[Rfam]
RNA sequence: AUAUAAGCAAAGAUUCUUUUUCUAGGUUCAUUGAAUUAGUUAUGUAUUUGGUCUACAUUUUAGUCCAAAUACAUAAAUGAUUCAAUGAACCUAGAAAAUGAAUUUUUGCUUAUAU
Numbered sequence: 001a002u003a004u005a006a007g008c009a010a011a012g013a014u015u016c017u018u019u020u021u022c023u024a025g026g027u028u029c030a031u032u033g034a035a036u037u038a039g040u041u042a043u044g045u046a047u048u049u050g051g052u053c054u055a056c057a058u059u060u061u062a063g064u065c066c067a068a069a070u071a072c073a074u075a076a077a078u079g080a081u082u083c084a085a086u087g088a089a090c091c092u093a094g095a096a097a098a099u100g101a102a103u104u105u106u107u108g109c110u111u112a113u114a115u
Base pairs, nucleotide, nucleotide: 002114003113004112005111006110007109009107010106011105012104013103015101016100018098019097020096021095022094023093024092025091027089028088029087030086031085032084033083034082035081036080037079038078040076041075042074043073044072049067050066051065
RNA: MIR2593 microRNA precursor family